[Rfam]
RNA sequence: GUUGGUUGAAAAUCGCCCUGGCUUUGGCCGUGGCUAUGGGUGAGAUUCAGCGCCUAGAGCCACCAGGAGCUUCAGCUCACCGCCCACAGUUUCAAUGUGGAGAGGUGAAACCCAGGCUCCGACAGGU
Dot-bracket structure: ....((((((..((((...((((........))))....))))..))))))..............(.(((((....(((((...(((.........)))....))))).....))))).).......